[Rfam]
RNA: U11 spliceosomal RNA
RNA sequence: AAAAAGGGUUUCUCUCGAGAGUGGCACACGAAGGGCAGCUUGAUUGCUCUGCGUGCAGAAUCAACAUCAAGAGAUUUCAGAAGCAUAAUUUUUUGGCACUUGGGCAGCUGGUGAUUGUUGGUCCUGGCACCCUA
Number, nucleotide and partner (000 for none) at each position: 001a000002a000003a000004a000005a000006g000007g000008g084009u083010u082011u081012c080013u026014c000015u024016c023017g022018a000019g000020a000021g000022u017023g016024g015025c000026a013027c055028a054029c053030g052031a000032a050033g049034g048035g047036c046037a045038g044039c000040u000041u000042g000043a000044u038045u037046g036047c035048u034049c033050u032051g000052c030053g029054u028055g027056c000057a000058g077059a076060a075061u074062c073063a000064a000065c000066a000067u000068c000069a000070a000071g000072a000073g062074a061075u060076u059077u058078c000079a000080g012081a011082a010083g009084c008085a000086u000087a000088a000089u000090u000091u000092u000093u000094u000095g000096g000097c000098a000099c000100u000101u000102g132103g131104g130105c000106a000107g128108c127109u126110g125111g124112u000113g123114a122115u121116u120117g000118u000119u000120g116121g115122u114123c113124c111125u110126g109127g108128c107129a000130c104131c103132c102133u000134a000